[Rfam]
RNA sequence: ACCUGCAUUCGAAAGUGAUCGCGGCCCCGGCCGUGGCCCGGUCAUCGAUAGUGCAGGGAGAGGAACGCCGGAAGCUUUCCCGUGUCUGGGGGGGCCGGCUCCGCCCUCCCAGACCCUGGUGCUGCCGGACA
Dot-bracket structure: .((((((((.....(((((((.((((........)))))))))))....))))))))..........((((.(((........((((((((((..........))))).)))))......))).))))...
The record is a 131-nucleotide RNA from Atlantisia rogersi, which matches "Small nucleolar RNA SNORA71" in Rfam.
NCBI's taxonomy places the organism under Eukaryota, Chordata, Aves, Neognathae, Atlantisia.
From the family's description: The members of this family belong to the H/ACA class of snoRNAs which bind a number of proteins (including dyskerin, Gar1p and Nop10p) to form snoRNP complexes. This class of snoRNAs are thought to guide the sites of modification of uridines to pseudouridines by forming direct base pairing interactions with substrate RNAs.
The literature on the family includes a 1997 paper in Genes Dev by Ganot et al., "The family of box ACA small nucleolar RNAs is defined by an evolutionarily conserved secondary structure and ubiquitous sequence elements essential for RNA accumulation".
The base pairs follow the family's consensus structure, which was predicted with PFOLD.
By type it is an H/ACA-box small nucleolar RNA.
Its family is annotated with nucleolus and RNA processing in the Gene Ontology.